[Rfam]
RNA sequence: CUAUCUUGGUGGCGCACUUGGACAAGUUCUUGGUGGGCUAACGUGUACUUCUAAUUUAUAGAAUUAUUGUUACAAAAGCCCGCUGAUAUAGCGGGCUUUUUUGU
Numbered sequence: 001c002u003a004u005c006u007u008g009g010u011g012g013c014g015c016a017c018u019u020g021g022a023c024a025a026g027u028u029c030u031u032g033g034u035g036g037g038c039u040a041a042c043g044u045g046u047a048c049u050u051c052u053a054a055u056u057u058a059u060a061g062a063a064u065u066a067u068u069g070u071u072a073c074a075a076a077a078g079c080c081c082g083c084u085g086a087u088a089u090a091g092c093g094g095g096c097u098u099u100u101u102u103g104u
Stems, first nucleotide, its partner, number of pairs: 009042002012039001015035004020030003077097007